The family of this 359-nucleotide part of an RNA from Halosimplex carlsbadense is "Archaeal large subunit ribosomal RNA".

[Rfam]
RNA sequence: CACAGUAGCAGCGAAAGUCGGGUUGAAAUCCUGACGGCCAAAAGGGCAAGGGUUCCUCAGCACUGUUCGUCAGCUGAGGGUUAGCCGGUCCUAAGUCUCACCGUAAUUCGAAUGAGACGAAAUGGGAAGCAGGUUAAUAUUCCUGCGCCAUCGUUCAUUGAAAGUCGACGCCUUGGGGUAGACCGAGCCGGGCCAUCGCCCGGUCGAACCGUCCAACUCCGUGGAAGCCGUAAUGGCACGAAGCGGACGAACGGCGGGAUAGAGCAAUUCGGUUCAACCUGGGGCCCGUGAAAAGACGAGAACGAUGUCCGUACCGAGCACCGACACAGGUGCCCAUGGCGGAGAAAGCCUAGGCCUGU
Numbered sequence: 001c002a003c004a005g006u007a008g009c010a011g012c013g014a015a016a017g018u019c020g021g022g023u024u025g026a027a028a029u030c031c032u033g034a035c036g037g038c039c040a041a042a043a044g045g046g047c048a049a050g051g052g053u054u055c056c057u058c059a060g061c062a063c064u065g066u067u068c069g070u071c072a073g074c075u076g077a078g079g080g081u082u083a084g085c086c087g088g089u090c091c092u093a094a095g096u097c098u099c100a101c102c103g104u105a106a107u108u109c110g111a112a113u114g115a116g117a118c119g120a121a122a123u124g125g126g127a128a129g130c131a132g133g134u135u136a137a138u139a140u141u142c143c144u145g146c147g148c149c150a151u152c153g154u155u156c157a158u159u160g161a162a163a164g165u166c167g168a169c170g171c172c173u174u175g176g177g178g179u180a181g182a183c184c185g186a187g188c189c190g191g192g193c194c195a196u197c198g199c200c201c202g203g204u205c206g207a208a209c210c211g212u213c214c215a216a217c218u219c220c221g222u223g224g225a226a227g228c229c230g231u232a233a234u235g236g237c238a239c240g241a242a243g244c245g246g247a248c249g250a251a252c253g254g255c256g257g258g259a260u261a262g263a264g265c266a267a268u269u270c271g272g273u274u275c276a277a278c279c280u281g282g283g284g285c286c287c288g289u290g291a292a293a294a295g296a297c298g299a300g301a302a303c304g305a306u307g308u309c310c311g312u313a314c315c316g317a318g319c320a321c322c323g324a325c326a327c328a329g330g331u332g333c334c335c336a337u338g339g340c341g342g343a344g345a346a347a348g349c350c351u352a353g354g355c356c357u358g359u
Base pairs, nucleotide, nucleotide: 017035018034019033020032021031022030036356037355038354039353044335045334046333047332050315051314055079056078057077058076059075060074064072065071086311087310088309090125091124095118096117097116098115099114100113102110103109129146130145131144132143133142149307150306151305152304153303154302155301156300164297165296166295170285171284172283173282174281175280176279177278181274182273183272184271185270187204188203189202190201191200209257210256211255212254218247219246220245221244222243227237228236229235321330322329338350339349340348
The base pairs follow the family's consensus structure, which is taken from published work. Gene Ontology terms of the family: ribosome and structural constituent of ribosome. The sequence is in the family's curated seed alignment.